Rfam assigns this 100-nucleotide RNA from Callithrix jacchus to the family "Vault RNA".
RNA sequence: UGGCUGGCUUUAGCUCAGCAGUUACUUCCACAGUAGUUUCUAUGGUGGAAAACAACCACUCUGCGUGGUUCGAGACCCAAGGGCGCUCUCCAGCCCUUUA
Numbered sequence: 001u002g003g004c005u006g007g008c009u010u011u012a013g014c015u016c017a018g019c020a021g022u023u024a025c026u027u028c029c030a031c032a033g034u035a036g037u038u039u040c041u042a043u044g045g046u047g048g049a050a051a052a053c054a055a056c057c058a059c060u061c062u063g064c065g066u067g068g069u070u071c072g073a074g075a076c077c078c079a080a081g082g083g084c085g086c087u088c089u090c091c092a093g094c095c096c097u098u099u100a
Base pairs, nucleotide, nucleotide: 002095003094004093005092006091007090013084014083015082016081021077026074027073028072030070
The source organism's lineage runs through Eukaryota, Opisthokonta, Metazoa, Vertebrata and Callithrix. Rfam describes the family as follows. This family of RNAs are found as part of the enigmatic vault ribonucleoprotein complex. The complex consists of a major vault protein (MVP), two minor vault proteins (VPARP and TEP1), and several small untranslated RNA molecules. It has been suggested that the vault complex is involved in drug resistance. The base pairs follow the family's consensus structure, which is taken from published work.